[Rfam]
RNA: ASpks TB sRNA
RNA sequence: CUUGAUCGAUCCCAGCCACAGCGGCCGGUCCGCCUCCCGUCCCCGCCCGUACGUGGCGAGCAGCGCCUGCGCCUC
Numbered sequence: 001c002u003u004g005a006u007c008g009a010u011c012c013c014a015g016c017c018a019c020a021g022c023g024g025c026c027g028g029u030c031c032g033c034c035u036c037c038c039g040u041c042c043c044c045g046c047c048c049g050u051a052c053g054u055g056g057c058g059a060g061c062a063g064c065g066c067c068u069g070c071g072c073c074u075c
Base pairs, nucleotide, nucleotide: 015025016024017023031071032070033069038065039064043060047056048055049054